Rfam assigns this 55-nucleotide RNA to the family "COG3860 RNA".
RNA sequence: GGGUCAACAGUUCACCUAGGCGUUGCCGGAGCCUCUUGCUCACGCUAAACCUGCU
Numbered sequence: 001g002g003g004u005c006a007a008c009a010g011u012u013c014a015c016c017u018a019g020g021c022g023u024u025g026c027c028g029g030a031g032c033c034u035c036u037u038g039c040u041c042a043c044g045c046u047a048a049a050c051c052u053g054c055u
Stems, first nucleotide, its partner, number of pairs: 001017004029041004
Dot-bracket structure: ((((.........))))...........((((.....))))..............
The family's consensus secondary structure is taken from published work.